The family of this 97-nucleotide sequence from Demequina lutea is "mraW RNA".
A search with the family's covariance model found it, with a score of 54 bits.
The base pairs follow the family's consensus structure, which is taken from published work.
Lineage of the source: Bacteria > Actinomycetota > Actinomycetes > Micrococcales > Demequina.
RNA sequence: CUAGCGACGCGCGCCGAGGCCUCCAGCCGAGCCCCUCUGACGGACUUCCCCCCGCCAGAGGAUUCGGAGGGAGACCUCGAUGCGUGUCGGUCAUAAG
Numbered sequence: 001c002u003a004g005c006g007a008c009g010c011g012c013g014c015c016g017a018g019g020c021c022u023c024c025a026g027c028c029g030a031g032c033c034c035c036u037c038u039g040a041c042g043g044a045c046u047u048c049c050c051c052c053c054g055c056c057a058g059a060g061g062a063u064u065c066g067g068a069g070g071g072a073g074a075c076c077u078c079g080a081u082g083c084g085u086g087u088c089g090g091u092c093a094u095a096a097g
Base pairs, nucleotide, nucleotide: 010084011083012082013081015079016078018076019075021073022072023071024070027067028066029065030064031063033061034060036059037058038057039056041054042053043052